tRNA: an 82-nucleotide RNA sequence from Pseudoloma neurophilia. The base pairs follow the family's consensus structure, which is taken from published work. Transfer RNA (tRNA) molecules are approximately 80 nucleotides in length. For this family Rfam cites "The tertiary structure of tRNA and the development of the genetic code" (Hou, Trends Biochem Sci, 1993). A search with the family's covariance model found it, with a score of 55 bits. It is annotated as a transfer RNA.
RNA sequence: GGUUGGAUGGCCGAGUGGUCUAAGGCGCUAGUUUAAGGUGCUAGUCUCUACGGAGGCGCGGGUUCGAAUCCCGCUCCAGCCA
Numbered sequence: 001g002g003u004u005g006g007a008u009g010g011c012c013g014a015g016u017g018g019u020c021u022a023a024g025g026c027g028c029u030a031g032u033u034u035a036a037g038g039u040g041c042u043a044g045u046c047u048c049u050a051c052g053g054a055g056g057c058g059c060g061g062g063u064u065c066g067a068a069u070c071c072c073g074c075u076c077c078a079g080c081c082a
Stems, first nucleotide, its partner, number of pairs: 001081007010026003028044005058074005
Dot-bracket structure: (((((((..(((...........))).(((((.......))))).............(((((.......)))))))))))).